[Rfam]
RNA sequence: AACGUGUACAUGUGCAACGACGAUAUAUGUCCGGUAAUUUGGGUCCGGACGUCUCUACCAUGGCACCGUAAGGCCAUGACUAUCGGUCGUCAGAAAUAAGCAC
Numbered sequence: 001a002a003c004g005u006g007u008a009c010a011u012g013u014g015c016a017a018c019g020a021c022g023a024u025a026u027a028u029g030u031c032c033g034g035u036a037a038u039u040u041g042g043g044u045c046c047g048g049a050c051g052u053c054u055c056u057a058c059c060a061u062g063g064c065a066c067c068g069u070a071a072g073g074c075c076a077u078g079a080c081u082a083u084c085g086g087u088c089g090u091c092a093g094a095a096a097u098a099a100g101c102a103c
Stems, first nucleotide, its partner, number of pairs: 018089004022084004029050006059078006
RNA: Purine riboswitch aptamer
Organism: [Clostridium] aminophilum